Notes: This 108-nucleotide RNA from Arminella tumorigenes belongs to the Rfam family "Rhizobiales sRNA Atu_At1". It is annotated as a small RNA. For this family Rfam cites "Deep sequencing uncovers numerous small RNAs on all four replicons of the plant pathogen Agrobacterium tumefaciens" (Wilms et al., RNA Biol, 2012). The match comes from Rfam's covariance-model search (98 bits).
[Rfam]
RNA sequence: AUCGCGAUUGUGUCAGCUGGACACGACGGAGAUGGUGAACACGGGGAUUUUUCCAGUUUCUUUCCGUGGCCAACGAAACGGCAGCCGAGCGCCCAAUCCGUCCAGUCG
Numbered sequence: 001a002u003c004g005c006g007a008u009u010g011u012g013u014c015a016g017c018u019g020g021a022c023a024c025g026a027c028g029g030a031g032a033u034g035g036u037g038a039a040c041a042c043g044g045g046g047a048u049u050u051u052u053c054c055a056g057u058u059u060c061u062u063u064c065c066g067u068g069g070c071c072a073a074c075g076a077a078a079c080g081g082c083a084g085c086c087g088a089g090c091g092c093c094c095a096a097u098c099c100g101u102c103c104a105g106u107c108g
Base pairs, nucleotide, nucleotide: 006107007106008105009104011023012022013021014020025102026101027100028099029098030097034093035092036091037090040068041067042066043065044064045063046062069082070081071080